RNA sequence: GUCUGAUUAGCGCAACUGGCAGAGCAACUGACUCUUAAUCAGUGGGUUGUGGGUUCGAUUCCCACAUCAGGCA
Numbered sequence: 001g002u003c004u005g006a007u008u009a010g011c012g013c014a015a016c017u018g019g020c021a022g023a024g025c026a027a028c029u030g031a032c033u034c035u036u037a038a039u040c041a042g043u044g045g046g047u048u049g050u051g052g053g054u055u056c057g058a059u060u061c062c063c064a065c066a067u068c069a070g071g072c073a
Stems, first nucleotide, its partner, number of pairs: 001072007010025002013022001027043005049065005

Annotation:
Rfam assigns this 73-nucleotide RNA sequence from Mycoplasma capricolum to the family "tRNA". Taxonomically the source falls in Mycoplasma (Bacteria, Mycoplasmatota, Mollicutes, Mycoplasmataceae). The family's RNA type in Rfam is transfer RNA.